[Rfam]
Nucleotides: 391
Base pairs, nucleotide, nucleotide: 001387002386003385004384005383006382007381008380009379010378011376012342013341014340015339016338017337018336020040021039023037024036025035026034027033028032045374046373047372049371050370051369052368053367054219055218056217057216061277062276063275066215067214068213069212070211071085072084073083074082075081086100087098088097089096090095101210102209106208107207108204109203110202123149124148125145126144127143128142130140131139132138133137157175158174159173160172161171162170177199178197179196180195181194182193183192184191185190223299224298225297226296233290234288236284269281270280271279272278306325307324309322310321311320312319313318
Number, partner (000 for none) and nucleotide at each position: 001387c002386g003385a004384g005383c006382c007381g008380g009379c010378c011376g012342g013341g014340c015339g016338g017337c018336c019000g020040c021039g022000u023037c024036g025035g026034g027033g028032c029000c030000a031000g032028g033027c034026c035025c036024c037023g038000c039021c040020g041000a042000g043000g044000a045374a046373g047372g048000u049371c050370c051369g052368g053367g054219c055218u056217c057216c058000a059000c060000a061277g062276g063275g064000c065000a066215a067214g068213g069212u070211g071085g072084u073083c074082g075081g076000u077000a078000a079000c080000a081075c082074c083073g084072a085071c086100c087098c088097g089096g090095g091000g092000c093000g094000a095090c096089c097088c098087g099000c100086g101210g102209g103000a104000c105000a106208g107207u108204g109203c110202c111000a112000c113000a114000g115000a116000a117000a118000a119000c120000a121000a122000a123149c124148c125145g126144c127143c128142u129000c130140c131139c132138c133137c134000u135000u136000c137133g138132g139131g140130g141000a142128a143127g144126g145125u146000a147000a148124g149123g150000g151000u152000g153000a154000a155000a156000c157175g158174g159173u160172g161171g162170u163000g164000u165000a166000a167000g168000a169000g170162a171161c172160c173159a174158c175157c176000a177199g178197c179196g180195c181194u182193c183192a184191c185190g186000g187000u188000g189000a190185c191184g192183u193182g194181a195180g196179c197178g198000g199177c200000u201000a202110g203109g204108u205000a206000a207107a208106c209102c210101c211070c212069a213068c214067c215066u216057g217056g218055a219054g220000c221000a222000a223299g224298g225297u226296c227000a228000a229000g230000a231000a232000g233290g234288g235000a236284c237000u238000c239000u240000c241000g242000c243000a244000a245000g246000a247000g248000a249000g250000c251000c252000c253000c254000g255000c256000g257000c258000g259000c260000g261000g262000c263000a264000c265000u266000u267000g268000a269281g270280g271279g272278c273000g274000a275063c276062c277061c278272g279271u280270c281269c282000g283000a284236g285000u286000c287000g288234c289000g290233c291000g292000g293000g294000u295000a296226g297225a298224c299223c300000g301000c302000u303000u304000g305000a306325g307324g308000c309322c310321g311320u312319c313318g314000g315000c316000a317000a318313c319312g320311a321310c322309g323000a324307c325306c326000c327000u328000a329000g330000a331000u332000g333000g334000a335000u336018g337017g338016c339015c340014g341013c342012c343000u344000c345000u346000u347000c348000g349000c350000a351000c352000c353000a354000g355000c356000g357000a358000a359000g360000a361000a362000c363000a364000g365000a366000a367053c368052c369051c370050g371049g372047c373046c374045u375000a376011c377000a378010g379009g380008c381007c382006g383005g384004c385003u386002c387001g388000c389000c390000c391000g
A member of the RNA family "Bacterial RNase P class A" from Sphaerisporangium rubeum, 391 nucleotides long. The base pairs follow the family's consensus structure, which is taken from published work. Taxonomically the source falls in Sphaerisporangium (Bacteria, Actinomycetota, Actinomycetes, Streptosporangiaceae). A reference for the family is Beauregard et al. (2013), "Identification and characterization of small RNAs in Yersinia pestis", RNA Biol. Rfam's curators write: Ribonuclease P (RNase P) is a ubiquitous endoribonuclease, found in archaea, bacteria and eukarya as well as chloroplasts and mitochondria.